[Rfam]
RNA sequence: GUUCAGCAUCAAGAGUCGGGUGAUCCCCGACGCCAACCUGCCUUCCCGGCAAGGUGGCGCCCGUUCAGGGGAUGCGGCCUCACCGGCAACUAACGGGUAUUGG
Dot-bracket structure: .....(((((....((((((.....))))))(((..((((((.[.[[))).))).)))............))))).(((.....)))........]].]....

The record is a 103-nucleotide RNA sequence from Asticcacaulis sp. YBE204, which matches "SAM-I/IV (S-adenosyl methionine) riboswitch aptamer" in Rfam. For this family Rfam cites "The aptamer core of SAM-IV riboswitches mimics the ligand-binding site of SAM-I riboswitches" (Weinberg et al., RNA, 2008). The family's consensus secondary structure is taken from published work.